[Rfam]
RNA sequence: AAUAAUGAUUGAUCACUGUUCAUUAUAGUUCUUAUAGAACUUUUUUACACAAAAUAGGCCCCAUAAUUCCUACAGUGGAUUUACCCACUACAGAAAUUAUAGAGCC
Numbered sequence: 001a002a003u004a005a006u007g008a009u010u011g012a013u014c015a016c017u018g019u020u021c022a023u024u025a026u027a028g029u030u031c032u033u034a035u036a037g038a039a040c041u042u043u044u045u046u047a048c049a050c051a052a053a054a055u056a057g058g059c060c061c062c063a064u065a066a067u068u069c070c071u072a073c074a075g076u077g078g079a080u081u082u083a084c085c086c087a088c089u090a091c092a093g094a095a096a097u098u099a100u101a102g103a104g105c106c
Stems, first nucleotide, its partner, number of pairs: 001024003005020001007016001027041005057106003061102001063100006070093001074089005
Rfam assigns this 106-nucleotide RNA from Streptococcus sp. DD10 to the family "Streptococcus RNA 266".
The family's RNA type in Rfam is small RNA.
The match comes from Rfam's covariance-model search (77 bits).
The organism belongs to Streptococcus, within Bacteria.